[Rfam]
mir-50 microRNA precursor family: a 77-nucleotide sequence from Pristionchus pacificus. On this family, see Lau et al., Science 2001: "An abundant class of tiny RNAs with probable regulatory roles in Caenorhabditis elegans". Lineage of the source: Eukaryota > Opisthokonta > Metazoa > Ecdysozoa > Pristionchus. Clan: mir-50 clan. The base pairs follow the family's consensus structure, which was predicted with RNAalifold.
RNA sequence: UGGACUCUGAUAUGUCUGGUAUUCUUGGGUUGUAGUAAUGCACAGCAACCAGAAUUAUUAGACAUAUCCGCGGCCAG
Numbered sequence: 001u002g003g004a005c006u007c008u009g010a011u012a013u014g015u016c017u018g019g020u021a022u023u024c025u026u027g028g029g030u031u032g033u034a035g036u037a038a039u040g041c042a043c044a045g046c047a048a049c050c051a052g053a054a055u056u057a058u059u060a061g062a063c064a065u066a067u068c069c070g071c072g073g074c075c076a077g
Base pairs, nucleotide, nucleotide: 009068010067011066012065013064014063015062016061017060018059019058020057021056022054028050029049030048031047